[Rfam]
Nucleotides: 063
Stems, first nucleotide, its partner, number of pairs: 007060012022045001025042005
Number, partner (000 for none) and nucleotide at each position: 001000g002000a003000a004000a005000g006000u007060a008059a009058g010057g011056g012055g013054a014053c015052a016051a017050u018049a019000a020000u021000c022045a023000a024000u025042u026041u027040c028039u029038u030000c031000u032000u033000c034000u035000a036000u037000u038029a039028a040027g041026a042025g043000g044000a045022u046000u047000g048000a049018u050017a051016u052015u053014g054013u055012u056011c057010c058009u059008u060007u061000a062000c063000u